A member of the RNA family "epsC RNA" from Halalkalibacter hemicellulosilyticus, 110 nucleotides long.

RNA sequence: UGGCAAUGUCUCCUUGCCGAUAUCGAUGGGGAUACUCGAUCAUGCUGUGGGCAGAAGCCUUAGACACAAACGUUGUCAUUGGUAUGGUGUGAGGGUGGGUUAGAUGCCCA
Number, nucleotide and partner (000 for none) at each position: 001u019002g018003g017004c016005a000006a000007u034008g033009u032010c031011u030012c029013c028014u000015u000016g004017c003018c002019g001020a000021u000022a000023u000024c000025g000026a000027u000028g013029g012030g011031g010032a009033u008034a007035c093036u092037c091038g090039a088040u087041c086042a085043u084044g083045c082046u081047g000048u000049g060050g059051g058052c057053a000054g000055a000056a000057g052058c051059c050060u049061u000062a000063g077064a076065c075066a074067c000068a000069a000070a000071c000072g000073u000074u066075g065076u064077c063078a000079u000080u000081g046082g045083u044084a043085u042086g041087g040088u039089g000090u038091g037092a036093g035094g000095g000096u110097g109098g108099g107100u106101u000102a000103g000104a000105u000106g100107c099108c098109c097110a096

The family has 30 seed sequences and 450 matches in Rfam 15.1.
Lineage of the source: Bacteria > Bacillota > Bacillaceae > Halalkalibacter > Halalkalibacter hemicellulosilyticus.